[Rfam]
RNA sequence: CCGAAGUUCGGCAAUGGUAUCUGCCUUGAACCGCCGCCUUUCCAGGCGAGCUGAUGAUACCUACGGGAAU
Numbered sequence: 001c002c003g004a005a006g007u008u009c010g011g012c013a014a015u016g017g018u019a020u021c022u023g024c025c026u027u028g029a030a031c032c033g034c035c036g037c038c039u040u041u042c043c044a045g046g047c048g049a050g051c052u053g054a055u056g057a058u059a060c061c062u063a064c065g066g067g068a069a070u
Stems, first nucleotide, its partner, number of pairs: 010025004016061006033051002
A member of the RNA family "Fluoride riboswitch aptamer (crcB RNA motif)" from Alistipes sp. AF17-16, 70 nucleotides long.
The family's consensus secondary structure is taken from published work.
Rfam links the family to the GO terms response to fluoride and positive regulation of gene expression.
The organism belongs to Alistipes, within Bacteria.
A search with the family's covariance model found it, with a score of 41 bits.